Rhizobiales-2 RNA: a 103-nucleotide RNA sequence from Pseudolabrys taiwanensis.
RNA sequence: CGACGUCGACUGAGCGUCGCUCGUUCUGCGGAUCGGCGCCGCCCCCGCCCCAUCCCAGCGCCGAUCGCAAAAGACCCGCCCGGUUUCCCCGACCGGGCGGGUC
Numbered sequence: 001c002g003a004c005g006u007c008g009a010c011u012g013a014g015c016g017u018c019g020c021u022c023g024u025u026c027u028g029c030g031g032a033u034c035g036g037c038g039c040c041g042c043c044c045c046c047g048c049c050c051c052a053u054c055c056c057a058g059c060g061c062c063g064a065u066c067g068c069a070a071a072a073g074a075c076c077c078g079c080c081c082g083g084u085u086u087c088c089c090c091g092a093c094c095g096g097g098c099g100g101g102u103c
Stems, first nucleotide, its partner, number of pairs: 001019005024071002027069005033063001035062005073103011
It is annotated as a small RNA. The organism belongs to Pseudolabrys, within Bacteria.